The family of this 72-nucleotide RNA sequence from Cimex lectularius is "mir-190 microRNA precursor family".
Rfam links the family to the GO terms miRNA-mediated post-transcriptional gene silencing and RISC complex.
Lineage of the source: Eukaryota > Metazoa > Panarthropoda > Altocrustacea > Cimex.
The family is grouped with related families in Rfam's "mir-50 clan".

[Rfam]
RNA sequence: ACUGCUGUAAGAUAUGUUUGAUAUUCUUGGUUGUUUAGGAUCAACCGAGGAUCAAACAUGUUAUGCAGCGGC
Numbered sequence: 001a002c003u004g005c006u007g008u009a010a011g012a013u014a015u016g017u018u019u020g021a022u023a024u025u026c027u028u029g030g031u032u033g034u035u036u037a038g039g040a041u042c043a044a045c046c047g048a049g050g051a052u053c054a055a056a057c058a059u060g061u062u063a064u065g066c067a068g069c070g071g072c
Base pairs, nucleotide, nucleotide: 005068006067007066008065009064011062012061013060014059015058016057017056018055019054020053021052022051024049025048029046030045031044032043033042